[Rfam]
RNA sequence: AUUACCGGGCUCACAAAACCCAGCCGCAGGUUCGGUUAGUGCGUCUGUCCGGGUCAAGGCGCGUAAGCCGCCCAACCUCAUCCCGCUCGCUCGCCGAGCAGGGAGCGCUAGCGCACGGCCGAGGGAACUAGAAAAGCCUCGGGCCACCGCGCCCGAGGCUGUUUACUUGCCACCUGGUCCG
Numbered sequence: 001a002u003u004a005c006c007g008g009g010c011u012c013a014c015a016a017a018a019c020c021c022a023g024c025c026g027c028a029g030g031u032u033c034g035g036u037u038a039g040u041g042c043g044u045c046u047g048u049c050c051g052g053g054u055c056a057a058g059g060c061g062c063g064u065a066a067g068c069c070g071c072c073c074a075a076c077c078u079c080a081u082c083c084c085g086c087u088c089g090c091u092c093g094c095c096g097a098g099c100a101g102g103g104a105g106c107g108c109u110a111g112c113g114c115a116c117g118g119c120c121g122a123g124g125g126a127a128c129u130a131g132a133a134a135a136g137c138c139u140c141g142g143g144c145c146a147c148c149g150c151g152c153c154c155g156a157g158g159c160u161g162u163u164u165a166c167u168u169g170c171c172a173c174c175u176g177g178u179c180c181g
Stems, first nucleotide, its partner, number of pairs: 005052006013044002020039001022037004053076002058072004062067001090181001093178003096174001098170002103168003107164001109121001111119002135160010
Dot-bracket structure: ....((((((..((.....(.((((........)))).)...))..))))))((...(((((....).))))..)).............(..((((.((...(((.(.(.((.....)).).............((((((((((......))))))))))...).)))))...).)))..)
RNA: Sense overlapping transcript RNA 2652 (sot)
Organism: Halorubellus sp. JP-L1